[Rfam]
RNA: 6S / SsrS RNA
Organism: Fulvimonas soli
RNA sequence: CGUUUUCUGCGGUGUACGCCAGCACACUCUUACAUUUGCCUUGUUCCUAUAUACGGCCCCGGGUCGGCUUUUCAUCGGCUGUUGCGCAGGUCCGCCCUCGAGCGGAAAGCCUUGAGGCCAUGAUCGCCCUCCCACCUGAUCCAGCGUGGAUCAAGGUCGUUUGGUGGGCAGCGGCAUCGCGGUUGACGC
Numbered sequence: 001c002g003u004u005u006u007c008u009g010c011g012g013u014g015u016a017c018g019c020c021a022g023c024a025c026a027c028u029c030u031u032a033c034a035u036u037u038g039c040c041u042u043g044u045u046c047c048u049a050u051a052u053a054c055g056g057c058c059c060c061g062g063g064u065c066g067g068c069u070u071u072u073c074a075u076c077g078g079c080u081g082u083u084g085c086g087c088a089g090g091u092c093c094g095c096c097c098u099c100g101a102g103c104g105g106a107a108a109g110c111c112u113u114g115a116g117g118c119c120a121u122g123a124u125c126g127c128c129c130u131c132c133c134a135c136c137u138g139a140u141c142c143a144g145c146g147u148g149g150a151u152c153a154a155g156g157u158c159g160u161u162u163g164g165u166g167g168g169c170a171g172c173g174g175c176a177u178c179g180c181g182g183u184u185g186a187c188g189c
Stems, first nucleotide, its partner, number of pairs: 002187003007182009017173003038157003042153002045150003061133003066128003072123001077119004086110002091106005